[Rfam]
RNA sequence: GGUCACGAGUGACAGCGCGUAGCCCUGGCUGGCUGUCCGGCAACCCUCCUCCGCGGCGGGGUGCUCCAGGUGACGACCCGGCCGCGUCCACGGGCGCGGCAAGAGCGGAAC
Numbered sequence: 001g002g003u004c005a006c007g008a009g010u011g012a013c014a015g016c017g018c019g020u021a022g023c024c025c026u027g028g029c030u031g032g033c034u035g036u037c038c039g040g041c042a043a044c045c046c047u048c049c050u051c052c053g054c055g056g057c058g059g060g061g062u063g064c065u066c067c068a069g070g071u072g073a074c075g076a077c078c079c080g081g082c083c084g085c086g087u088c089c090a091c092g093g094g095c096g097c098g099g100c101a102a103g104a105g106c107g108g109a110a111c
Base pairs, nucleotide, nucleotide: 001078002077003076004075009038011037012036013035014034015033016032021030022029039065040064041063044061045060046059048056049055081100082099083098084097085096086095087094088093
Dot-bracket structure: ((((....(.((((((....((......)).)))))))(((..(((.((.....))..))).))).........))))..((((((((....))))))))...........
SAM (S-adenosyl methionine) riboswitch aptamer: a 111-nucleotide RNA sequence from Quadrisphaera granulorum. About the family: SAM-IV is a mRNA element that regulates gene expression via direct sensing of S-adenosylmethionine (SAM or AdoMet). A reference for the family is Weinberg et al. (2008), "The aptamer core of SAM-IV riboswitches mimics the ligand-binding site of SAM-I riboswitches", RNA. NCBI's taxonomy places the organism under Bacteria, Bacillati, Kineosporiales, Kineosporiaceae, Quadrisphaera.